Rfam assigns this 81-nucleotide RNA sequence from Solirubrobacter ginsenosidimutans to the family "c-di-GMP-I-GGC riboswitch aptamer". Its family is annotated with cyclic-di-GMP binding in the Gene Ontology. A reference for the family is Weinberg et al. (2017), "Bioinformatic analysis of riboswitch structures uncovers variant classes with altered ligand specificity", Proc Natl Acad Sci U S A. A search with the family's covariance model found it, with a score of 63 bits.

[Rfam]
RNA sequence: CUGUACAAAGGCAAACCCGUCGCGAGGCGGGGACGCAAAGCUUGAGGUCUCACAUGGGGUGAGACAGCUCGGCUGCCGGCG
Numbered sequence: 001c002u003g004u005a006c007a008a009a010g011g012c013a014a015a016c017c018c019g020u021c022g023c024g025a026g027g028c029g030g031g032g033a034c035g036c037a038a039a040g041c042u043u044g045a046g047g048u049c050u051c052a053c054a055u056g057g058g059g060u061g062a063g064a065c066a067g068c069u070c071g072g073c074u075g076c077c078g079g080c081g
Base pairs, nucleotide, nucleotide: 001081011036012035016031017030018029019028020027021026034067039074040073041072042071044070045069046068047065048064049063050062051061
Dot-bracket structure: (.........((...((((((....))))))..[))..((((.((((((((.........))))).])))))))......)